[Rfam]
RNA sequence: AUGCAUCUAUUGACAAACCUGGAGCAGUUACUGUCUGCUGCAAAGGUUUCCAGUACAGAUGCAAGAAAAAAGUGUCCUUGCCCUUUCUGUCUGUCUGAUUGUGGCAGACAAGAUUGAAUGGGGGAAUACAGGA
Numbered sequence: 001a002u003g004c005a006u007c008u009a010u011u012g013a014c015a016a017a018c019c020u021g022g023a024g025c026a027g028u029u030a031c032u033g034u035c036u037g038c039u040g041c042a043a044a045g046g047u048u049u050c051c052a053g054u055a056c057a058g059a060u061g062c063a064a065g066a067a068a069a070a071a072g073u074g075u076c077c078u079u080g081c082c083c084u085u086u087c088u089g090u091c092u093g094u095c096u097g098a099u100u101g102u103g104g105c106a107g108a109c110a111a112g113a114u115u116g117a118a119u120g121g122g123g124g125a126a127u128a129c130a131g132g133a
Stems, first nucleotide, its partner, number of pairs: 002063007011052002015049005023039005075125005083116001086113003091107005
The family of this 133-nucleotide RNA sequence from Myotis lucifugus is "Small nucleolar RNA SNORA31". It scores 70 bits against the family's covariance model. A reference for the family is Huttenhofer et al. (2001), "RNomics: an experimental approach that identifies 201 candidates for novel, small, non-messenger RNAs in mouse", EMBO J. By type it is an H/ACA-box small nucleolar RNA. Taxonomically the source falls in Myotis (Eukaryota, Amniota, Laurasiatheria, Vespertilionidae).